[Rfam]
RNA: mir-26 microRNA precursor family
RNA sequence: CUGGUUCCAAGUGCAAGUAAUCAAGUAUAGGCCAAAUCAGAUGCAGAAAGCCUAUCCUGGAUUACUUGAACCUGGUUCCAG
Number, nucleotide and partner (000 for none) at each position: 001c000002u080003g079004g078005u000006u000007c075008c074009a073010a000011g071012u070013g000014c068015a067016a066017g065018u064019a063020a062021u061022c060023a000024a058025g057026u000027a055028u054029a053030g052031g051032c050033c000034a000035a000036a000037u000038c000039a000040g000041a000042u000043g000044c000045a000046g000047a000048a000049a000050g032051c031052c030053u029054a028055u027056c000057c025058u024059g000060g022061a021062u020063u019064a018065c017066u016067u015068g014069a000070a012071c011072c000073u009074g008075g007076u000077u000078c004079c003080a002081g000